[Rfam]
radC RNA: a 148-nucleotide RNA sequence from Ventosimonas gracilis. A search with the family's covariance model found it, with a score of 60 bits.
RNA sequence: AUCCAUCCCCAUGUUUGUCGGCGACGCUGACAGCAUCCCAGGCAGUCAAGGCCAUCAGGACUGCGGCGCGGCAACUGUGCGCUGGCUGGUUUUUUCACGGACGCUAUGCGUCUUUCACCCCAAGGGACAAACCACCCCUUGGGGCUGG
Numbered sequence: 001a002u003c004c005a006u007c008c009c010c011a012u013g014u015u016u017g018u019c020g021g022c023g024a025c026g027c028u029g030a031c032a033g034c035a036u037c038c039c040a041g042g043c044a045g046u047c048a049a050g051g052c053c054a055u056c057a058g059g060a061c062u063g064c065g066g067c068g069c070g071g072c073a074a075c076u077g078u079g080c081g082c083u084g085g086c087u088g089g090u091u092u093u094u095u096c097a098c099g100g101a102c103g104c105u106a107u108g109c110g111u112c113u114u115u116c117a118c119c120c121c122a123a124g125g126g127a128c129a130a131a132c133c134a135c136c137c138c139u140u141g142g143g144g145c146u147g148g
Base pairs, nucleotide, nucleotide: 011036012035013034014032017031018030019029020028021027022026042064043063044062045061046060047059050087051086052085053084065083066082067081068080069079070078120148121147122146128141129140130139